Shown here is a 448-nucleotide sequence from Loxia leucoptera, a member of the family "Vertebrate telomerase RNA". The match comes from Rfam's covariance-model search (136 bits). About the family: Telomerase is a ribonucleoprotein reverse transcriptase that synthesises telomeric DNA. Telomerase RNAs differ greatly in sequence and structure between vertebrates, ciliates and yeasts, but they share a 5' pseudoknot structure close to the template sequence. Vertebrate telomerase RNAs have a 3' H/ACA snoRNA-like domain. The literature on the family includes a 2005 paper in J Biol Chem by Fragnet et al., "Comparative functional study of the viral telomerase RNA based on natural mutations". Gene Ontology terms of the family: telomerase activity, telomere maintenance via telomerase and telomerase catalytic core complex.
RNA sequence: CGUGCCGGGGUGGGCAGGCCCUAUGGCCAACUAACCCUAAUGGCGGCCGCGCCCCUCACGCUCGCCCGCUGUUUUACUCGCUGACUUUCAGCGGGCAAAGGAAGCGGCCCAGGGGAAGGGGGUGGGGGAAAAGAGUUCCGGCCUCAAAAAAAGCCAGCGAGGGGGAUCCACACCCCGGCCCACCCUGGGGUCCCUGUCCCUUCUCCGCAACCGGGGAUGCUCCCGCCCUCGCCCCUGUGGAGGCCGCGGUCGGCGGGCUCAGCGCCACUGCCGCCGCGAAGAGUUCGGCUCUGUCAGCCUCGGCGGCGGCCGGGAGCAGAGGACCGGCGCGCCCACCCUGGGCAGCCGGGGGACCCCAGCAGAACAAAACGGGCGCGGCGCCGCUGGGCGCUGAGCAGCCGCCGCCCCCUGAGACGUGGGGUGCGCGGCCGGCGCCGCCCCGACACCC
Numbered sequence: 001c002g003u004g005c006c007g008g009g010g011u012g013g014g015c016a017g018g019c020c021c022u023a024u025g026g027c028c029a030a031c032u033a034a035c036c037c038u039a040a041u042g043g044c045g046g047c048c049g050c051g052c053c054c055c056u057c058a059c060g061c062u063c064g065c066c067c068g069c070u071g072u073u074u075u076a077c078u079c080g081c082u083g084a085c086u087u088u089c090a091g092c093g094g095g096c097a098a099a100g101g102a103a104g105c106g107g108c109c110c111a112g113g114g115g116a117a118g119g120g121g122g123u124g125g126g127g128g129a130a131a132a133g134a135g136u137u138c139c140g141g142c143c144u145c146a147a148a149a150a151a152a153g154c155c156a157g158c159g160a161g162g163g164g165g166a167u168c169c170a171c172a173c174c175c176c177g178g179c180c181c182a183c184c185c186u187g188g189g190g191u192c193c194c195u196g197u198c199c200c201u202u203c204u205c206c207g208c209a210a211c212c213g214g215g216g217a218u219g220c221u222c223c224c225g226c227c228c229u230c231g232c233c234c235c236u237g238u239g240g241a242g243g244c245c246g247c248g249g250u251c252g253g254c255g256g257g258c259u260c261a262g263c264g265c266c267a268c269u270g271c272c273g274c275c276g277c278g279a280a281g282a283g284u285u286c287g288g289c290u291c292u293g294u295c296a297g298c299c300u301c302g303g304c305g306g307c308g309g310c311c312g313g314g315a316g317c318a319g320a321g322g323a324c325c326g327g328c329g330c331g332c333c334c335a336c337c338c339u340g341g342g343c344a345g346c347c348g349g350g351g352g353a354c355c356c357c358a359g360c361a362g363a364a365c366a367a368a369a370c371g372g373g374c375g376c377g378g379c380g381c382c383g384c385u386g387g388g389c390g391c392u393g394a395g396c397a398g399c400c401g402c403c404g405c406c407c408c409c410u411g412a413g414a415c416g417u418g419g420g421g422u423g424c425g426c427g428g429c430c431g432g433c434g435c436c437g438c439c440c441c442g443a444c445a446c447c448c
Base pairs, nucleotide, nucleotide: 004179005178006177007176008175009174010173011172012171014169016167019165020164021163022162051108052107053106055104064096065095066094067093068092069091070090071089080158081157082156083155085153086151087150088149185359186358187357188356189355190354191353207330208329211327212326213325214324219317220316221315222314223313224312225311229306230305231304232303233302245278246277247276248275249274251273252272253271254270256266257265258264280292281291282290283289371440372439373438374437377436378435379434380433381432382431399428400427401426402425406421407420408419409418